This 268-nucleotide sequence from Fidelibacterota bacterium MT.SAG.4 belongs to the Rfam family "Bacterial large signal recognition particle RNA". Rfam links the family to the GO terms SRP-dependent cotranslational protein targeting to membrane, signal sequence recognition and signal recognition particle, plasma membrane targeting. About the family: The signal recognition particle (SRP) is a universally conserved ribonucleoprotein involved in the co-translational targeting of proteins to membranes.

RNA sequence: CUGUGCACGAUGGGGAGUUAGCGGUACCCUGUAACCGGCAAUCCGCUGUAGCCGGAUCGAUACCAUGACCGAGGGUGUACCGAUUUCGUUACUCCUUUACGGAAUAAGUGUUGAAGCUUUAAGUCCUGCGCAAUGAGAAGUUGCUAAACUCCGUCAGGACCGGAAGGUAGCAGCGGUAAGGUUACAACUUGUGUGCCGUAGAUAGCUUAGGCGGAGCUUAUGACGGAAAGGUAGAAGCGGAAAGAGUCACACGGAGUCUGGCGCACAG
Numbered sequence: 001c002u003g004u005g006c007a008c009g010a011u012g013g014g015g016a017g018u019u020a021g022c023g024g025u026a027c028c029c030u031g032u033a034a035c036c037g038g039c040a041a042u043c044c045g046c047u048g049u050a051g052c053c054g055g056a057u058c059g060a061u062a063c064c065a066u067g068a069c070c071g072a073g074g075g076u077g078u079a080c081c082g083a084u085u086u087c088g089u090u091a092c093u094c095c096u097u098u099a100c101g102g103a104a105u106a107a108g109u110g111u112u113g114a115a116g117c118u119u120u121a122a123g124u125c126c127u128g129c130g131c132a133a134u135g136a137g138a139a140g141u142u143g144c145u146a147a148a149c150u151c152c153g154u155c156a157g158g159a160c161c162g163g164a165a166g167g168u169a170g171c172a173g174c175g176g177u178a179a180g181g182u183u184a185c186a187a188c189u190u191g192u193g194u195g196c197c198g199u200a201g202a203u204a205g206c207u208u209a210g211g212c213g214g215a216g217c218u219u220a221u222g223a224c225g226g227a228a229a230g231g232u233a234g235a236a237g238c239g240g241a242a243a244g245a246g247u248c249a250c251a252c253g254g255a256g257u258c259u260g261g262c263g264c265a266c267a268g
Base pairs, nucleotide, nucleotide: 001268002267003266004265005264006263008059009058010057011056012030013029014028015027017025018024019023035055036054037053038052039051063261064260065259067258068257069256073252075250076249077248079247080246084242085241086240087239088238092231093230097228098227100225101224105222106221107218108217109216116212117211118210120209121208122207123206124205126201127200128199129198130197131193132192134191135190136189137188140185141184143182144181145180151176152175153174154173159168160167161166
Lineage of the source: Bacteria > Pseudomonadati > Fidelibacterota. The match comes from Rfam's covariance-model search (128 bits). The base pairs follow the family's consensus structure, which is taken from published work. Rfam classes the family as a non-coding RNA gene.